The family of this 85-nucleotide RNA sequence from Callithrix jacchus is "mir-571 microRNA precursor family". Its family is annotated with miRNA-mediated post-transcriptional gene silencing and RISC complex in the Gene Ontology. The base pairs follow the family's consensus structure, which was predicted with RNAalifold.

[Rfam]
RNA sequence: AGUAAGACAAAGCCUUGUGCACCAUUUCCCUAUCUGUAGCCAUGUCUAUGGGCCCUUGAGUUGGCCACCUGGGUUAGGGCCUGCU
Numbered sequence: 001a002g003u004a005a006g007a008c009a010a011a012g013c014c015u016u017g018u019g020c021a022c023c024a025u026u027u028c029c030c031u032a033u034c035u036g037u038a039g040c041c042a043u044g045u046c047u048a049u050g051g052g053c054c055c056u057u058g059a060g061u062u063g064g065c066c067a068c069c070u071g072g073g074u075u076a077g078g079g080c081c082u083g084c085u
Stems, first nucleotide, its partner, number of pairs: 001085004006080001008078001012074004017069001018067002022064003026060003033052007